[Rfam]
RNA sequence: CAGUGGUACUAUACCUCAGUUUUAUCAGGUGUAUUUUCAAAUCACCUGUAAAUACUGAGGUUGUGUUCCAUUG
Dot-bracket structure: ..((((.((...((((((((.((..((((((...........))))))..)).))))))))...)).))))..